[Rfam]
RNA sequence: UUCUUAUCGAGAGAGACCGAGGGAUUGGGCCCUAUGACGUCUCGGCAACAGAUUUGCGUAAGCGAACACUGUGCCACGUCCCACAAACAUUCGUUUGGAAGAUAAGAA
Numbered sequence: 001u002u003c004u005u006a007u008c009g010a011g012a013g014a015g016a017c018c019g020a021g022g023g024a025u026u027g028g029g030c031c032c033u034a035u036g037a038c039g040u041c042u043c044g045g046c047a048a049c050a051g052a053u054u055u056g057c058g059u060a061a062g063c064g065a066a067c068a069c070u071g072u073g074c075c076a077c078g079u080c081c082c083a084c085a086a087a088c089a090u091u092c093g094u095u096u097g098g099a100a101g102a103u104a105a106g107a108a
Stems, first nucleotide, its partner, number of pairs: 001108008013043005021032003026083004044075004049071002051067001053065002079100001084097005

A member of the RNA family "SAM riboswitch aptamer (S box leader)" from Planococcaceae bacterium Storch 2/2-2, 108 nucleotides long. A search with the family's covariance model found it, with a score of 79 bits. The family's consensus secondary structure is taken from published work. The family has 457 seed sequences and 9,625 matches in Rfam 15.1. About the family: The SAM riboswitch is found upstream of a number of genes which code for proteins involved in methionine or cysteine biosynthesis in Gram-positive bacteria.